[Rfam]
RNA: TPP riboswitch aptamer (THI element)
Organism: Mesobacillus zeae
RNA sequence: AUAAACCACAGGGGGAGCUGCCUGAAGCAGCUGAGAGUGAGCGAUUUUAGUUCAGACCCUUUGAACCUGUUAGUUAAUGCUAGCGCAGGAAUGUGGAUACGAUAAGAA
Numbered sequence: 001a002u003a004a005a006c007c008a009c010a011g012g013g014g015g016a017g018c019u020g021c022c023u024g025a026a027g028c029a030g031c032u033g034a035g036a037g038u039g040a041g042c043g044a045u046u047u048u049a050g051u052u053c054a055g056a057c058c059c060u061u062u063g064a065a066c067c068u069g070u071u072a073g074u075u076a077a078u079g080c081u082a083g084c085g086c087a088g089g090a091a092u093g094u095g096g097a098u099a100c101g102a103u104a105a106g107a108a
Stems, first nucleotide, its partner, number of pairs: 006096005011060004017031005038054005066089004070083004